[Rfam]
RNA sequence: GGUCCGACACCGCCGAGUCACAGCAGUGAGCCGGGGACCCGGGAACCUGGGGUGAAUCCGCGACCAUCGCGGUAGGGCGACCCCUUCCCGCCCGAACCCGUCAGCUAACCCGGUAGGCGGUAUGGGAAGAAGGA
Numbered sequence: 001g002g003u004c005c006g007a008c009a010c011c012g013c014c015g016a017g018u019c020a021c022a023g024c025a026g027u028g029a030g031c032c033g034g035g036g037a038c039c040c041g042g043g044a045a046c047c048u049g050g051g052g053u054g055a056a057u058c059c060g061c062g063a064c065c066a067u068c069g070c071g072g073u074a075g076g077g078c079g080a081c082c083c084c085u086u087c088c089c090g091c092c093c094g095a096a097c098c099c100g101u102c103a104g105c106u107a108a109c110c111c112g113g114u115a116g117g118c119g120g121u122a123u124g125g126g127a128a129g130a131a132g133g134a
Stems, first nucleotide, its partner, number of pairs: 011119004018029003030114006040049002050099003058072004075093004